[Rfam]
RNA sequence: UAGAGGGACUCCUGUCGCAGGAGAGAUGACGCCUACUACCAUCAAUGAGCCAUGCUUGUUCAAUUUGAAUAGUAAGCUUCAUCUCUCUUCGACUGAAGUCCCUUUCAAU
Numbered sequence: 001u002a003g004a005g006g007g008a009c010u011c012c013u014g015u016c017g018c019a020g021g022a023g024a025g026a027u028g029a030c031g032c033c034u035a036c037u038a039c040c041a042u043c044a045a046u047g048a049g050c051c052a053u054g055c056u057u058g059u060u061c062a063a064u065u066u067g068a069a070u071a072g073u074a075a076g077c078u079u080c081a082u083c084u085c086u087c088u089u090c091g092a093c094u095g096a097a098g099u100c101c102c103u104u105u106c107a108a109u
Stems, first nucleotide, its partner, number of pairs: 005101003009098002012095001014093004019089003023085007
Rfam assigns this 109-nucleotide sequence from Durio zibethinus to the family "MIR5225 microRNA precursor family". The match comes from Rfam's covariance-model search (81 bits). Its family is annotated with RISC complex and miRNA-mediated post-transcriptional gene silencing in the Gene Ontology.